RNA sequence: AAGUAUGUUUCUAAGGGCUGUAGCUGUGGCCAUGGGAUCUCCGACUGCAUGCAAGAGCAAUCUGGAGGGACAUGAACAGCCCAGGUCAGCACCAAAUCUCAGCUGCCAUUCGCUUUUCCUGUAAUA
Numbered sequence: 001a002a003g004u005a006u007g008u009u010u011c012u013a014a015g016g017g018c019u020g021u022a023g024c025u026g027u028g029g030c031c032a033u034g035g036g037a038u039c040u041c042c043g044a045c046u047g048c049a050u051g052c053a054a055g056a057g058c059a060a061u062c063u064g065g066a067g068g069g070a071c072a073u074g075a076a077c078a079g080c081c082c083a084g085g086u087c088a089g090c091a092c093c094a095a096a097u098c099u100c101a102g103c104u105g106c107c108a109u110u111c112g113c114u115u116u117u118c119c120u121g122u123a124a125u126a
Base pairs, nucleotide, nucleotide: 011035012034016031017030018029019028020027021026064119065118066117067116068115069114079106080105083099084098085097
The family of this 126-nucleotide RNA from Propithecus coquereli is "Small nucleolar RNA SNORA44". For this family Rfam cites "RNomics: an experimental approach that identifies 201 candidates for novel, small, non-messenger RNAs in mouse" (Huttenhofer et al., EMBO J, 2001). Rfam links the family to the GO terms nucleolus and RNA processing. About the family: ACA44 is a member of the H/ACA class of snoRNA that guide the sites of modification of uridines to pseudouridines. Pairs were carried over by alignment from the consensus structure, which was predicted with PFOLD. Rfam classes the family as an H/ACA-box small nucleolar RNA.